[Rfam]
RNA sequence: ACAAUGAUACUCCCUUACAGCCAUAGUCCGAGCGUUAAAAGCGUCGCAGGCAAUGGGUCGGGCCGUGUGAGAACCACGCGGGGGUGAAAGUCCCGUGG
Number, nucleotide and partner (000 for none) at each position: 001a000002c000003a000004a000005u000006g000007a000008u000009a000010c000011u000012c095013c062014c061015u060016u000017a000018c000019a000020g000021c000022c000023a000024u000025a000026g000027u000028c000029c000030g000031a000032g000033c000034g000035u000036u000037a000038a000039a000040a000041g000042c000043g000044u000045c000046g000047c000048a000049g000050g000051c000052a000053a000054u000055g000056g000057g000058u000059c000060g015061g014062g013063c081064c080065g079066u000067g077068u076069g075070a000071g000072a000073a000074c000075c069076a068077c067078g000079c065080g064081g063082g094083g093084g092085u000086g000087a000088a000089a000090g000091u000092c084093c083094c082095g012096u000097g000098g000
Overview: A member of the RNA family "pemK RNA" from Enterocloster lavalensis, 98 nucleotides long. The source organism's lineage runs through Bacteria, Bacillota, Clostridia, Lachnospirales and Enterocloster.